[Rfam]
RNA sequence: GGGGUGUGAUGAUUUGAAACUUUUGGUCCGUGUUUCUGACGUGCCUUGAGCACUUGACGAGAACGGUUUCUUCGUCUGACCCC
Numbered sequence: 001g002g003g004g005u006g007u008g009a010u011g012a013u014u015u016g017a018a019a020c021u022u023u024u025g026g027u028c029c030g031u032g033u034u035u036c037u038g039a040c041g042u043g044c045c046u047u048g049a050g051c052a053c054u055u056g057a058c059g060a061g062a063a064c065g066g067u068u069u070c071u072u073c074g075u076c077u078g079a080c081c082c083c
Base pairs, nucleotide, nucleotide: 001083002082003081004080

Shown here is an 83-nucleotide sequence from Pleodorina starrii, a member of the family "Small nucleolar RNA SNORD18". On this family, see Prislei et al., Nucleic Acids Res 1993: "Two different snoRNAs are encoded in introns of amphibian and human L1 ribosomal protein genes". It scores 47 bits against the family's covariance model. Rfam classes the family as a C/D-box small nucleolar RNA. Rfam links the family to the GO terms RNA processing and nucleolus. The family has 16 seed sequences and 2,622 matches in Rfam 15.1.